[Rfam]
RNA sequence: CUUGGCCGAGCCCAGGCGCAGCGGCCGGCCCUCCGGACGCUCCUGCCCGUAGGUGGCGAGGAUCGCCUGCGCCUC
Numbered sequence: 001c002u003u004g005g006c007c008g009a010g011c012c013c014a015g016g017c018g019c020a021g022c023g024g025c026c027g028g029c030c031c032u033c034c035g036g037a038c039g040c041u042c043c044u045g046c047c048c049g050u051a052g053g054u055g056g057c058g059a060g061g062a063u064c065g066c067c068u069g070c071g072c073c074u075c
Stems, first nucleotide, its partner, number of pairs: 015025001017023001031071001033069001038065002043060002047056003
RNA: ASpks TB sRNA
Organism: Streptomyces mobaraensis